Annotation
The record is a 128-nucleotide RNA sequence from Anabas testudineus, which matches "U4atac minor spliceosomal RNA" in Rfam. On this family, see Marz et al., J Mol Evol 2008: "Evolution of spliceosomal snRNA genes in metazoan animals". The family is grouped with related families in Rfam's "U4 clan". The organism belongs to Anabas, within Eukaryota.

RNA sequence: GCCGUCCUUGUCUCGGGGUGGUCUGGGAAACUCGAUGAGCGUCUGGUGAGAGCUUCCCUGCUGACACCACGUCAACACACACGCACCACCUGAGCUCCGGCUUCAGGCUCGGUGCAAUUUUUGGAAAC
Numbered sequence: 001g002c003c004g005u006c007c008u009u010g011u012c013u014c015g016g017g018g019u020g021g022u023c024u025g026g027g028a029a030a031c032u033c034g035a036u037g038a039g040c041g042u043c044u045g046g047u048g049a050g051a052g053c054u055u056c057c058c059u060g061c062u063g064a065c066a067c068c069a070c071g072u073c074a075a076c077a078c079a080c081a082c083g084c085a086c087c088a089c090c091u092g093a094g095c096u097c098c099g100g101c102u103u104c105a106g107g108c109u110c111g112g113u114g115c116a117a118u119u120u121u122u123g124g125a126a127a128c
Base pairs, nucleotide, nucleotide: 006018007017008016009015021061023060025058027056028055029054031052032051033050039047040046083115084114085113086112087111090106091105092104093103094101095100